[Rfam]
RNA sequence: AUUGCAUGGUGGCGCGUUUGGACAAGUUCUUGGCGGGCUAAUGUGUACUUCUAAUUAACAGAAUGAAACGUCACAAAGCCCGCAUCCCCAGCGGGCUUUUUGUU
Numbered sequence: 001a002u003u004g005c006a007u008g009g010u011g012g013c014g015c016g017u018u019u020g021g022a023c024a025a026g027u028u029c030u031u032g033g034c035g036g037g038c039u040a041a042u043g044u045g046u047a048c049u050u051c052u053a054a055u056u057a058a059c060a061g062a063a064u065g066a067a068a069c070g071u072c073a074c075a076a077a078g079c080c081c082g083c084a085u086c087c088c089c090a091g092c093g094g095g096c097u098u099u100u101u102g103u104u
Stems, first nucleotide, its partner, number of pairs: 009042002012039001015035004020030003077097007